[Rfam]
RNA: MIR1435 microRNA precursor family
RNA sequence: UUCAGUUGUCCUAAGUCAAACCAUCUUAGGUUUGACCAAUUUUGUAAAGAAUAUUAACUUCUACCAAAUCAAAAGAGGCAAUACAUUUCAUAAUGUAUCUAAUGAAGCUUAUUUGGUAUCAUAAAUAUUAUUUUUAUUUUCUUUAAAUUUGGUCAAACUUAGGAUGGUUUGGCUUAGGACAACUGAAC
Numbered sequence: 001u002u003c004a005g006u007u008g009u010c011c012u013a014a015g016u017c018a019a020a021c022c023a024u025c026u027u028a029g030g031u032u033u034g035a036c037c038a039a040u041u042u043u044g045u046a047a048a049g050a051a052u053a054u055u056a057a058c059u060u061c062u063a064c065c066a067a068a069u070c071a072a073a074a075g076a077g078g079c080a081a082u083a084c085a086u087u088u089c090a091u092a093a094u095g096u097a098u099c100u101a102a103u104g105a106a107g108c109u110u111a112u113u114u115g116g117u118a119u120c121a122u123a124a125a126u127a128u129u130a131u132u133u134u135u136a137u138u139u140u141c142u143u144u145a146a147a148u149u150u151g152g153u154c155a156a157a158c159u160u161a162g163g164a165u166g167g168u169u170u171g172g173c174u175u176a177g178g179a180c181a182a183c184u185g186a187a188c
Base pairs, nucleotide, nucleotide: 005183006182007181008180009179011177012176013175014174015173016172017171018170019169020168021167022166023165024164025163026162031157032156033155034154035153044142046140047139048138049137053132056129057128060125062123063122069116070115071114072113073112